RNA: Manganese Mn2+ riboswitch aptamer (yybP-ykoY)
Organism: Cupriavidus necator
RNA sequence: GCCGCUUCCAUUGGGGAGUAGCCGCCCUGCUCUCACCGCGCCGCGCAAUGCGGACUCCGGGGGACAGGGGCGUACGUCAACAGACUUGACCGCUUGCGGUUAUGGCGUGCGCAGCUCCGGACCCGCCCGGCCGUACUGAUACGGACCC
Numbered sequence: 001g002c003c004g005c006u007u008c009c010a011u012u013g014g015g016g017a018g019u020a021g022c023c024g025c026c027c028u029g030c031u032c033u034c035a036c037c038g039c040g041c042c043g044c045g046c047a048a049u050g051c052g053g054a055c056u057c058c059g060g061g062g063g064a065c066a067g068g069g070g071c072g073u074a075c076g077u078c079a080a081c082a083g084a085c086u087u088g089a090c091c092g093c094u095u096g097c098g099g100u101u102a103u104g105g106c107g108u109g110c111g112c113a114g115c116u117c118c119g120g121a122c123c124c125g126c127c128c129g130g131c132c133g134u135a136c137u138g139a140u141a142c143g144g145a146c147c148c
Stems, first nucleotide, its partner, number of pairs: 026068003070112010087102005